[Rfam]
RNA sequence: GAUUAAGCCAAUACAAAUAUCUAUAUAUCGUCGAAAUAAGGUCGACAGUUUCUACCCACUACCGUAAAUGGUGGACUAUAGGUAAACGAAAUUAAGAA
Numbered sequence: 001g002a003u004u005a006a007g008c009c010a011a012u013a014c015a016a017a018u019a020u021c022u023a024u025a026u027a028u029c030g031u032c033g034a035a036a037u038a039a040g041g042u043c044g045a046c047a048g049u050u051u052c053u054a055c056c057c058a059c060u061a062c063c064g065u066a067a068a069u070g071g072u073g074g075a076c077u078a079u080a081g082g083u084a085a086a087c088g089a090a091a092u093u094a095a096g097a098a
Stems, first nucleotide, its partner, number of pairs: 018084008030046005056074006
Dot-bracket structure: .................((((((((....(((((.......))))).........((((((.......))))))..))))))))..............

About this RNA: This 98-nucleotide sequence from Lactobacillus acidophilus belongs to the Rfam family "Purine riboswitch aptamer". A search with the family's covariance model found it, with a score of 69 bits. From the family's description: Riboswitches are metabolite binding domains within certain messenger RNAs that serve as precision sensors for their corresponding targets. Allosteric rearrangement of mRNA structure is mediated by ligand binding, and this results in modulation of gene expression. The base pairs follow the family's consensus structure, which is taken from published work. NCBI's taxonomy places the organism under Bacteria, Bacillati, Bacillota, Lactobacillaceae, Lactobacillus acidophilus.